[Rfam]
RNA sequence: UGAAGAUGCAGAACUUAGCUCAUUAGUGAGCAUUGAACCAAACAGGGAUUGUUCACAGUGGCUAAGUUCAGUGUCUGAC
Numbered sequence: 001u002g003a004a005g006a007u008g009c010a011g012a013a014c015u016u017a018g019c020u021c022a023u024u025a026g027u028g029a030g031c032a033u034u035g036a037a038c039c040a041a042a043c044a045g046g047g048a049u050u051g052u053u054c055a056c057a058g059u060g061g062c063u064a065a066g067u068u069c070a071g072u073g074u075c076u077g078a079c
Stems, first nucleotide, its partner, number of pairs: 011069010026056007

Rfam assigns this 79-nucleotide RNA from Cyclopterus lumpus to the family "mir-27 microRNA precursor family". A reference for the family is Chen et al. (2005), "The developmental miRNA profiles of zebrafish as determined by small RNA cloning", Genes Dev. The family's consensus secondary structure was predicted with RNAalifold. The match comes from Rfam's covariance-model search (73 bits).